[Rfam]
RNA sequence: GGACGAUGACGAAUAAAGCGUGCAAGGUCUCGUUCGUCGUAAGUGCGAUAUUUCUCGCCUUGCCGACCAUCCUGCUAUAUCACCACCCAUAAACCGAGUCC
Numbered sequence: 001g002g003a004c005g006a007u008g009a010c011g012a013a014u015a016a017a018g019c020g021u022g023c024a025a026g027g028u029c030u031c032g033u034u035c036g037u038c039g040u041a042a043g044u045g046c047g048a049u050a051u052u053u054c055u056c057g058c059c060u061u062g063c064c065g066a067c068c069a070u071c072c073u074g075c076u077a078u079a080u081c082a083c084c085a086c087c088c089a090u091a092a093a094c095c096g097a098g099u100c101c
Stems, first nucleotide, its partner, number of pairs: 001101004047061002
RNA: Small nucleolar RNA Z43